[Rfam]
RNA sequence: GUAUUUCAUCCUUCAUUCCACCGGAGUCUGUGUGUUUGAGCCAAUCAGAUUUCAGUGGAUUGAAGGUUGAGGCA
Number, nucleotide and partner (000 for none) at each position: 001g000002u000003a000004u000005u000006u000007c000008a000009u000010c000011c065012u064013u063014c062015a061016u000017u000018c000019c057020a056021c055022c000023g053024g052025a051026g050027u000028c048029u047030g046031u000032g000033u000034g000035u000036u000037u000038g000039a000040g000041c000042c000043a000044a000045u000046c030047a029048g028049a000050u026051u025052u024053c023054a000055g021056u020057g019058g000059a000060u000061u015062g014063a013064a012065g011066g000067u000068u000069g000070a000071g000072g000073c000074a000